[Rfam]
Nucleotides: 079
Base pairs, nucleotide, nucleotide: 001079003077004076005075006074
Number, partner (000 for none) and nucleotide at each position: 001079a002000a003077u004076c005075c006074c007000u008000g009000u010000g011000a012000a013000g014000a015000a016000c017000a018000a019000u020000u021000u022000c023000c024000a025000u026000a027000a028000u029000u030000a031000a032000a033000a034000g035000u036000a037000g038000u039000g040000g041000g042000c043000u044000g045000a046000u047000g048000u049000c050000u051000c052000c053000a054000u055000u056000g057000a058000u059000g060000a061000a062000c063000a064000a065000u066000g067000a068000g069000u070000c071000u072000g073000a074006g075005g076004g077003a078000a079001u